The family of this 114-nucleotide RNA from Parafilimonas terrae is "SAM riboswitch aptamer (S box leader)". It scores 81 bits against the family's covariance model. The SAM riboswitch is found upstream of a number of genes which code for proteins involved in methionine or cysteine biosynthesis in Gram-positive bacteria.
[Rfam]
RNA sequence: AACUUAUCAAGAAAGGCAGAGGGAUUGGCCCGAUGAAGCCUUAGCAACCACUCCGGCUUAUGCCGGAAAAAGGUGCCAACUCCAACUCCAAUUUAAAAUUGGGAGAGAUAAGUC
Numbered sequence: 001a002a003c004u005u006a007u008c009a010a011g012a013a014a015g016g017c018a019g020a021g022g023g024a025u026u027g028g029c030c031c032g033a034u035g036a037a038g039c040c041u042u043a044g045c046a047a048c049c050a051c052u053c054c055g056g057c058u059u060a061u062g063c064c065g066g067a068a069a070a071a072g073g074u075g076c077c078a079a080c081u082c083c084a085a086c087u088c089c090a091a092u093u094u095a096a097a098a099u100u101g102g103g104a105g106a107g108a109u110a111a112g113u114c
Base pairs, nucleotide, nucleotide: 002113003112004111005110006109007108008107013042014041015040016039017038021031022030023029025085026084027083028082044076045075046074048073049072052067053066054065055064081106086103088102089101090100091099092098